Rfam assigns this 74-nucleotide RNA sequence from Terasakiella brassicae to the family "tRNA".
A search with the family's covariance model found it, with a score of 71 bits.
The family's consensus secondary structure is taken from published work.
Taxonomically the source falls in Terasakiella (Bacteria, Pseudomonadota, Alphaproteobacteria, Rhodospirillales).
Rfam's curators write: Transfer RNA (tRNA) molecules are approximately 80 nucleotides in length.
RNA sequence: GGGUCGUUAGCUCAGUUGGUUAGAGUGCUGCCUUGACAUGGCAGAGGUCACAAGUUCAAAUCUUGUACGACCCA
Numbered sequence: 001g002g003g004u005c006g007u008u009a010g011c012u013c014a015g016u017u018g019g020u021u022a023g024a025g026u027g028c029u030g031c032c033u034u035g036a037c038a039u040g041g042c043a044g045a046g047g048u049c050a051c052a053a054g055u056u057c058a059a060a061u062c063u064u065g066u067a068c069g070a071c072c073c074a
Stems, first nucleotide, its partner, number of pairs: 001073007010026004028044005050066005